[Rfam]
RNA sequence: UUGGAUGAAACUCAUGUGGGUCUCACACUUUGGAAAUGGAUCCCACCUAAAGUGGUGAGACCCACAUGUGUUUCAUCCAA
Numbered sequence: 001u002u003g004g005a006u007g008a009a010a011c012u013c014a015u016g017u018g019g020g021u022c023u024c025a026c027a028c029u030u031u032g033g034a035a036a037u038g039g040a041u042c043c044c045a046c047c048u049a050a051a052g053u054g055g056u057g058a059g060a061c062c063c064a065c066a067u068g069u070g071u072u073u074c075a076u077c078c079a080a
Base pairs, nucleotide, nucleotide: 001080002079003078004077005076006075007074008073009072010071011070013068014067015066016065017064018063023058024057025056026054027053028052029051030050031049032048

Rfam assigns this 80-nucleotide RNA from Medicago truncatula to the family "MIR5269 microRNA precursor family". The match comes from Rfam's covariance-model search (73 bits). Taxonomically the source falls in Medicago (Eukaryota, Streptophyta, Magnoliopsida, Pentapetalae). Rfam links the family to the GO terms RISC complex and miRNA-mediated post-transcriptional gene silencing. The family has 2 seed sequences and 389 matches in Rfam 15.1.